[Rfam]
RNA sequence: GAUAAUAUCUUUGAGUUUGAUUAUAUAAAUUCACAUUGACGGGUGAAUGUUUCUACCGGCUGCCUUUCAGCUGACUAUAAUCUAUCCUUUGCGGGUA
Dot-bracket structure: ..................(((((((...((((((........))))))........((((((.....))))))..)))))))...............
This 97-nucleotide RNA sequence from Anaeromassilibacillus sp. An172 belongs to the Rfam family "Purine riboswitch aptamer". The organism belongs to Anaeromassilibacillus, within Bacteria.